[Rfam]
glmS glucosamine-6-phosphate activated ribozyme aptamer: a 164-nucleotide sequence from Gemella morbillorum.
RNA sequence: UUUAUAGUUAUAGCGCCCGAACUAAGUUCUAACGAUUAAACCGAGCUUAGUUGACGAGGGAAAAAGUUAUCGAAAAUUCGGCGGAUGCUUUUUCGGAAUUUAAGAGUUUCGUUAAAUAAUGUACAAACGGAGUAUUUCUUUGAAAUAAAAUUAAAUAUUUUGAA
Numbered sequence: 001u002u003u004a005u006a007g008u009u010a011u012a013g014c015g016c017c018c019g020a021a022c023u024a025a026g027u028u029c030u031a032a033c034g035a036u037u038a039a040a041c042c043g044a045g046c047u048u049a050g051u052u053g054a055c056g057a058g059g060g061a062a063a064a065a066g067u068u069a070u071c072g073a074a075a076a077u078u079c080g081g082c083g084g085a086u087g088c089u090u091u092u093u094c095g096g097a098a099u100u101u102a103a104g105a106g107u108u109u110c111g112u113u114a115a116a117u118a119a120u121g122u123a124c125a126a127a128c129g130g131a132g133u134a135u136u137u138c139u140u141u142g143a144a145a146u147a148a149a150a151u152u153a154a155a156u157a158u159u160u161u162g163a164a
Base pairs, nucleotide, nucleotide: 020052021051022050023049024048025047026046027045029043061093062092063091064090065089070081071080072079073078094111095110096109097108098107099106117153118152119151120150122148129138130137131136
From the family's description: This entry contains a glucosamine-6-phosphate activated ribozyme that is found in the mRNA for GlmS. GlmS is an enzyme that uses fructose-6-phosphate and glutamine to generate glucosamine-6-phosphate. The family's consensus secondary structure is taken from published work. A search with the family's covariance model found it, with a score of 82 bits. Rfam classes the family as a riboswitch.